[Rfam]
RNA sequence: GGGCUGGCUUUAGCUCAGCGGUUCCUUCGAAAGUGUCUUAACAACCUCUUUGCCCCAUCAGAGCGGUUCGAGACCCGCGGGCACUCUCCAGCCCUUUA
Dot-bracket structure: .((((((.....((((.((((....(((((.....................................)))))..)))))))).....)))))).....
Numbered sequence: 001g002g003g004c005u006g007g008c009u010u011u012a013g014c015u016c017a018g019c020g021g022u023u024c025c026u027u028c029g030a031a032a033g034u035g036u037c038u039u040a041a042c043a044a045c046c047u048c049u050u051u052g053c054c055c056c057a058u059c060a061g062a063g064c065g066g067u068u069c070g071a072g073a074c075c076c077g078c079g080g081g082c083a084c085u086c087u088c089c090a091g092c093c094c095u096u097u098a
Stems, first nucleotide, its partner, number of pairs: 002093006013082004018078004026072005
Notes
The record is a 98-nucleotide RNA from Propithecus coquereli, which matches "Vault RNA" in Rfam. Lineage of the source: Eukaryota > Eutheria > Primates > Indriidae > Propithecus. Rfam's curators write: This family of RNAs are found as part of the enigmatic vault ribonucleoprotein complex. The complex consists of a major vault protein (MVP), two minor vault proteins (VPARP and TEP1), and several small untranslated RNA molecules. It has been suggested that the vault complex is involved in drug resistance.